[Rfam]
RNA sequence: GUCAAGAUGGCCGAGUUGGUCUAAGGCGCCAGUUUCAGGUACUGGUCCGAAAGGGCAUGGGUUCGAAUCCAUUCUUGACA
Numbered sequence: 001g002u003c004a005a006g007a008u009g010g011c012c013g014a015g016u017u018g019g020u021c022u023a024a025g026g027c028g029c030c031a032g033u034u035u036c037a038g039g040u041a042c043u044g045g046u047c048c049g050a051a052a053g054g055g056c057a058u059g060g061g062u063u064c065g066a067a068u069c070c071a072u073u074c075u076u077g078a079c080a
Base pairs, nucleotide, nucleotide: 001079002078003077004076005075006074007073010027011026012025029045030044031043032042033041057072058071059070060069061068

A member of the RNA family "tRNA" from Populus deltoides, 80 nucleotides long. The match comes from Rfam's covariance-model search (49 bits). The family's consensus secondary structure is taken from published work. The organism belongs to Populus, within Eukaryota. Its family is annotated with triplet codon-amino acid adaptor activity in the Gene Ontology.